[Rfam]
RNA sequence: ACAAUGAUACUUCUGACCGUUCAGGCUGCCAUCGUAAAAGAGCAGCAAGUGAAAUUCUUAUGA
Numbered sequence: 001a002c003a004a005u006g007a008u009a010c011u012u013c014u015g016a017c018c019g020u021u022c023a024g025g026c027u028g029c030c031a032u033c034g035u036a037a038a039a040g041a042g043c044a045g046c047a048a049g050u051g052a053a054a055u056u057c058u059u060a061u062g063a
Stems, first nucleotide, its partner, number of pairs: 012060001013024004026045003032039001047059003

The family of this 63-nucleotide RNA sequence is "pemK RNA".